A member of the RNA family "R2 RNA element" from Drosophila gunungcola, 230 nucleotides long. This family represents the 3' UTR region of the R2 retrotransposable element. This family is known to interact with the R2-encoded reverse transcriptase in a reaction known as target primed reverse transcription (TPRT). Lineage of the source: Eukaryota > Pterygota > Endopterygota > Diptera > elegans subgroup (in: flies). A search with the family's covariance model found it, with a score of 94 bits. It is annotated as a cis-regulatory element. For this family Rfam cites "Reverse transcription of R2Bm RNA is primed by a nick at the chromosomal target site: a mechanism for non-LTR retrotransposition" (Luan et al., Cell, 1993).

[Rfam]
RNA sequence: ACUUUUUGGGGCAGCGGCUGUGUUUGACUUGCCUGCUACCUUGGCAUUAAAAAUUUGGAAACUAAAGGUAUAAACACAGCCUUCGUGGUAUGAGGUGGUUUUUAGUACGUAGGCGUUGUAGAACAAAUUCUCUCUUUAUCUAAGAUCUACAACGAAGCGUGCAUGCGAGUUAGCGAUAUGAAUCGGAAACAAUCGAACUCGUAUCUAUGAAGAUUUUCCAUCCUCGCGUC
Numbered sequence: 001a002c003u004u005u006u007u008g009g010g011g012c013a014g015c016g017g018c019u020g021u022g023u024u025u026g027a028c029u030u031g032c033c034u035g036c037u038a039c040c041u042u043g044g045c046a047u048u049a050a051a052a053a054u055u056u057g058g059a060a061a062c063u064a065a066a067g068g069u070a071u072a073a074a075c076a077c078a079g080c081c082u083u084c085g086u087g088g089u090a091u092g093a094g095g096u097g098g099u100u101u102u103u104a105g106u107a108c109g110u111a112g113g114c115g116u117u118g119u120a121g122a123a124c125a126a127a128u129u130c131u132c133u134c135u136u137u138a139u140c141u142a143a144g145a146u147c148u149a150c151a152a153c154g155a156a157g158c159g160u161g162c163a164u165g166c167g168a169g170u171u172a173g174c175g176a177u178a179u180g181a182a183u184c185g186g187a188a189a190c191a192a193u194c195g196a197a198c199u200c201g202u203a204u205c206u207a208u209g210a211a212g213a214u215u216u217u218c219c220a221u222c223c224u225c226g227c228g229u230c
Stems, first nucleotide, its partner, number of pairs: 037070006076229002079227002092225004097219002105162005114154009164203008